The record is an 87-nucleotide sequence from Allostigmatella aurantiaca, which matches "tRNA" in Rfam.
The match comes from Rfam's covariance-model search (60 bits).
The base pairs follow the family's consensus structure, which is taken from published work.
Transfer RNA (tRNA) molecules are approximately 80 nucleotides in length.
RNA sequence: GGAGGAAUGGCCGAGCGGCUGAAGGCAGCGGUCUUGAAAACCGCAGAGGGUGAAAGCCCUCCGUAGGUUCGAAUCCUACUUCCUCCG
Number, nucleotide and partner (000 for none) at each position: 001g086002g085003a084004g083005g082006a081007a080008u000009g000010g026011c025012c024013g000014a000015g000016c000017g000018g000019c000020u000021g000022a000023a000024g012025g011026c010027a000028g044029c043030g042031g041032u040033c000034u000035u000036g000037a000038a000039a000040a032041c031042c030043g029044c028045a000046g000047a000048g000049g000050g000051u000052g000053a000054a000055a000056g000057c000058c000059c000060u000061c000062c000063g079064u078065a077066g076067g075068u000069u000070c000071g000072a000073a000074u000075c067076c066077u065078a064079c063080u007081u006082c005083c004084u003085c002086c001087g000